Shown here is a 66-nucleotide RNA sequence from Falco tinnunculus, a member of the family "mir-190 microRNA precursor family". Rfam 15.1 lists 1,667 matches to the family in 854 species. The match comes from Rfam's covariance-model search (65 bits). Clan: mir-50 clan.

[Rfam]
RNA sequence: AUAUGUUUGAUAUUAGGUUGUUUUAUUAGCAAACCAACUAAAUAUCAAACAUAUUCUUACAGCGCC
Numbered sequence: 001a002u003a004u005g006u007u008u009g010a011u012a013u014u015a016g017g018u019u020g021u022u023u024u025a026u027u028a029g030c031a032a033a034c035c036a037a038c039u040a041a042a043u044a045u046c047a048a049a050c051a052u053a054u055u056c057u058u059a060c061a062g063c064g065c066c
Stems, first nucleotide, its partner, number of pairs: 001054014016039005